RNA sequence: UAUUAGUCUGUUGCAGUGUCAACAAUUAAUU
Number, nucleotide and partner (000 for none) at each position: 001u000002a030003u029004u028005a027006g026007u025008c000009u024010g023011u022012u021013g020014c018015a000016g000017u000018g014019u000020c013021a012022a011023c010024a009025a007026u006027u005028a004029a003030u002031u000